[Rfam]
RNA sequence: AGUCUGCGAUGAUGCAGGAGAUUGCUCAGAAAUGAGGUAACUUCUGCGGAGUAUGUCCGUUGAUCGGGCGG
Numbered sequence: 001a002g003u004c005u006g007c008g009a010u011g012a013u014g015c016a017g018g019a020g021a022u023u024g025c026u027c028a029g030a031a032a033u034g035a036g037g038u039a040a041c042u043u044c045u046g047c048g049g050a051g052u053a054u055g056u057c058c059g060u061u062g063a064u065c066g067g068g069c070g071g
Stems, first nucleotide, its partner, number of pairs: 014047003018044003025036004057071005
Annotation:
The record is a 71-nucleotide RNA from Intestinimonas butyriciproducens, which matches "S10-Clostridia ribosomal protein leader" in Rfam. It is annotated as a cis-regulatory leader. A reference for the family is Eckert and Weinberg (2020), "Discovery of 20 novel ribosomal leader candidates in bacteria and archaea", BMC Microbiol. NCBI's taxonomy places the organism under Bacteria, Bacillati, Bacillota, Clostridia, Intestinimonas.